[Rfam]
RNA sequence: UCAAAAUGGAGUCCAGAAACUAUUAUAAAACGGGGAGAAACCGAAAGCCAUACGAGUAGGAAAUCU
Numbered sequence: 001u002c003a004a005a006a007u008g009g010a011g012u013c014c015a016g017a018a019a020c021u022a023u024u025a026u027a028a029a030a031c032g033g034g035g036a037g038a039a040a041c042c043g044a045a046a047g048c049c050a051u052a053c054g055a056g057u058a059g060g061a062a063a064u065c066u
Base pairs, nucleotide, nucleotide: 006023007022008021009020034049035048041060042059

A member of the RNA family "DUF805 RNA", 66 nucleotides long. The family has 46 seed sequences and 281 matches in Rfam 15.1. It is one of the family's seed sequences.